This 92-nucleotide sequence from Ezakiella coagulans belongs to the Rfam family "THF (Tetrahydrofolate) riboswitch aptamer".
Taxonomically the source falls in Ezakiella (Bacteria, Bacillati, Bacillota, Tissierellia).
RNA sequence: AACAGAGUAGGUGGUCUUGCGUUAAGUGUUUGAGAAUGGGACGUCGUCUCAAAACGAAGGGAUACCGCGGUAGAUCAUUCGCGUCCGCUAUU
Numbered sequence: 001a002a003c004a005g006a007g008u009a010g011g012u013g014g015u016c017u018u019g020c021g022u023u024a025a026g027u028g029u030u031u032g033a034g035a036a037u038g039g040g041a042c043g044u045c046g047u048c049u050c051a052a053a054a055c056g057a058a059g060g061g062a063u064a065c066c067g068c069g070g071u072a073g074a075u076c077a078u079u080c081g082c083g084u085c086c087g088c089u090a091u092u
Stems, first nucleotide, its partner, number of pairs: 001092002004089002010080002014076001017073003020069003026055002029053007039086005059066002
Overview: The family's consensus secondary structure is taken from published work.